RNA sequence: UGAUGUAAGGGUUUCAAGCUCAAAGGUCGUUCGUGCUUGCACGAAAAGAGCUUUGAAUUUGAAAGCCGCCAAACACGAGCAAGAAGCGUGAAACGCGUAUUGCGAGUUUUUGCAGAAUUGCGUCAGCAAUUCGUGACAUCA
Numbered sequence: 001u002g003a004u005g006u007a008a009g010g011g012u013u014u015c016a017a018g019c020u021c022a023a024a025g026g027u028c029g030u031u032c033g034u035g036c037u038u039g040c041a042c043g044a045a046a047a048g049a050g051c052u053u054u055g056a057a058u059u060u061g062a063a064a065g066c067c068g069c070c071a072a073a074c075a076c077g078a079g080c081a082a083g084a085a086g087c088g089u090g091a092a093a094c095g096c097g098u099a100u101u102g103c104g105a106g107u108u109u110u111u112g113c114a115g116a117a118u119u120g121c122g123u124c125a126g127c128a129a130u131u132c133g134u135g136a137c138a139u140c141a
Stems, first nucleotide, its partner, number of pairs: 001141006010066001012064002016060003020056006027049002030046001031044005070112004075107002079103004086096004115132007
The record is a 141-nucleotide sequence from a Lachnospiraceae bacterium, which matches "Clostridiales-1 RNA" in Rfam.